[Rfam]
RNA sequence: AAGCUUAGAGGUUGAAAAGUAUCCGCCUCCAACGCGCCGUCCUUGUGACGGGCCGAGAAAUGUGGGCGACCGCGGGUCCCGCCUAAGCUU
Numbered sequence: 001a002a003g004c005u006u007a008g009a010g011g012u013u014g015a016a017a018a019g020u021a022u023c024c025g026c027c028u029c030c031a032a033c034g035c036g037c038c039g040u041c042c043u044u045g046u047g048a049c050g051g052g053c054c055g056a057g058a059a060a061u062g063u064g065g066g067c068g069a070c071c072g073c074g075g076g077u078c079c080c081g082c083c084u085a086a087g088c089u090u
Base pairs, nucleotide, nucleotide: 001090002089003088004087005086006085007084008083011033012032013031014030023075024074025073026072035057037051038050039049040048041047062082063081064080065079066078
Shown here is a 90-nucleotide RNA sequence, a member of the family "skipping-rope RNA". Rfam's curators put it in the seed alignment. Rfam classes the family as a small RNA.